The record is a 125-nucleotide RNA sequence from Gossypium raimondii, which matches "MIR7504 microRNA precursor family" in Rfam. Pairs were carried over by alignment from the consensus structure, which was predicted with RNAalifold. Its family is annotated with miRNA-mediated post-transcriptional gene silencing and RISC complex in the Gene Ontology. The family has 8 seed sequences and 7,343 matches in Rfam 15.1. The organism belongs to Gossypium, within Eukaryota.
RNA sequence: AAUAAGAGAAUGACAAAUCAGAUUUUUAUUUUCCUGAUUUUUAGUAUUUUUAGUUGGAUUUGAAUUUUUUCAAGAGGAAAAAGCUAAAAAUCAGGAGAAAAAAUCUGAUUUGUCAUUCUCCCAUU
Numbered sequence: 001a002a003u004a005a006g007a008g009a010a011u012g013a014c015a016a017a018u019c020a021g022a023u024u025u026u027u028a029u030u031u032u033c034c035u036g037a038u039u040u041u042u043a044g045u046a047u048u049u050u051u052a053g054u055u056g057g058a059u060u061u062g063a064a065u066u067u068u069u070u071c072a073a074g075a076g077g078a079a080a081a082a083g084c085u086a087a088a089a090a091u092c093a094g095g096a097g098a099a100a101a102a103a104u105c106u107g108a109u110u111u112g113u114c115a116u117u118c119u120c121c122c123a124u125u
Base pairs, nucleotide, nucleotide: 001125002124003123006120007119008118009117010116011115012114013113014112015111016110017109018108019107020106021105022104023103024102025101026100027099031097032096033095034094035093036092037091038090039089040088041087043085044084047081048080049079050078